Shown here is a 174-nucleotide RNA sequence from Rhinolophus ferrumequinum, a member of the family "FGF-1 internal ribosome entry site (IRES)". Rfam describes the family as follows. This family represents the FGF-1 internal ribosome entry site (IRES). The FGF-1 IRES is present in the 5' UTR of the mRNA and allows cap-independent translation. It is thought that FGF-1 IRES activity is strictly controlled and highly tissue specific. Gene Ontology term of the family: ribosome binding. A search with the family's covariance model found it, with a score of 94 bits. Rfam 15.1 lists 127 matches to the family in 125 species. NCBI's taxonomy places the organism under Eukaryota, Mammalia, Boreoeutheria, Rhinolophinae, Rhinolophus.
RNA sequence: GACUCCAGGGGAAUAAGGGCAUCGCCUCCUUCUGUUGAAGGACACUCCCCUCUGAUGGAGAAUGGGAACUCCCUUCCUCCUGCAGCCGCCUGUGUGCAGCCAUCCUGCUAGGACAGUGUGGACGCUAUAAGCUGUUGCAGCUGCCGUCAACCCAGAAAGAAAGUAACCCAGCGC
Numbered sequence: 001g002a003c004u005c006c007a008g009g010g011g012a013a014u015a016a017g018g019g020c021a022u023c024g025c026c027u028c029c030u031u032c033u034g035u036u037g038a039a040g041g042a043c044a045c046u047c048c049c050c051u052c053u054g055a056u057g058g059a060g061a062a063u064g065g066g067a068a069c070u071c072c073c074u075u076c077c078u079c080c081u082g083c084a085g086c087c088g089c090c091u092g093u094g095u096g097c098a099g100c101c102a103u104c105c106u107g108c109u110a111g112g113a114c115a116g117u118g119u120g121g122a123c124g125c126u127a128u129a130a131g132c133u134g135u136u137g138c139a140g141c142u143g144c145c146g147u148c149a150a151c152c153c154a155g156a157a158a159g160a161a162a163g164u165a166a167c168c169c170a171g172c173g174c
Stems, first nucleotide, its partner, number of pairs: 003173001005171001008169003014160001017049003025041003029037001051156003058079001060076003064073003086146001088144002095139005101134001105120001